[Rfam]
RNA sequence: GUCAAGCGGUGUAGCAUCAGCUCGUAACUCAAGCAAGGGCAUCGAGGUGAUGGGACUUGGCUUAAUUUCACAUGGUAGGACUGCAGGGUUCGGUCUGCUGGCUUGCCCAUUCCAAGUUGGGAGUUGGGCUGAGUGGGUAAGGCGAAGGCCUGGUCCAAAUAGCCCCUGAAGAGGAAGGCAUUGCGUCAGGUUGGCUUCAUAGAGCAGCGAAUACCUCCCGCCCUCUAUAGUGGAAGGAUAAUAAGUUGGGGCAUCCUCGGUCCAUCAUUACCCUAUAGGGGUGGGGGGAGCUCAAUCGAACCAUCACCUUU
Numbered sequence: 001g002u003c004a005a006g007c008g009g010u011g012u013a014g015c016a017u018c019a020g021c022u023c024g025u026a027a028c029u030c031a032a033g034c035a036a037g038g039g040c041a042u043c044g045a046g047g048u049g050a051u052g053g054g055a056c057u058u059g060g061c062u063u064a065a066u067u068u069c070a071c072a073u074g075g076u077a078g079g080a081c082u083g084c085a086g087g088g089u090u091c092g093g094u095c096u097g098c099u100g101g102c103u104u105g106c107c108c109a110u111u112c113c114a115a116g117u118u119g120g121g122a123g124u125u126g127g128g129c130u131g132a133g134u135g136g137g138u139a140a141g142g143c144g145a146a147g148g149c150c151u152g153g154u155c156c157a158a159a160u161a162g163c164c165c166c167u168g169a170a171g172a173g174g175a176a177g178g179c180a181u182u183g184c185g186u187c188a189g190g191u192u193g194g195c196u197u198c199a200u201a202g203a204g205c206a207g208c209g210a211a212u213a214c215c216u217c218c219c220g221c222c223c224u225c226u227a228u229a230g231u232g233g234a235a236g237g238a239u240a241a242u243a244a245g246u247u248g249g250g251g252c253a254u255c256c257u258c259g260g261u262c263c264a265u266c267a268u269u270a271c272c273c274u275a276u277a278g279g280g281g282u283g284g285g286g287g288g289a290g291c292u293c294a295a296u297c298g299a300a301c302c303a304u305c306a307c308c309u310u311u
Stems, first nucleotide, its partner, number of pairs: 001040003005022003009018001028037002044310010056298001058294003061290003066285001068278001070276001072274001074272004078263006085257002088255001092252001094251002098249008107237002110235005116228002119225003123221002126165006134157005140151004166171001173218003177214001182211001184209003191202003
This 311-nucleotide sequence from Carnegiea gigantea belongs to the Rfam family "Plant signal recognition particle RNA". It is annotated as a non-coding RNA gene. Its Rfam clan is "SRP clan". Taxonomically the source falls in Carnegiea (Eukaryota, Tracheophyta, Cactaceae, Echinocereeae).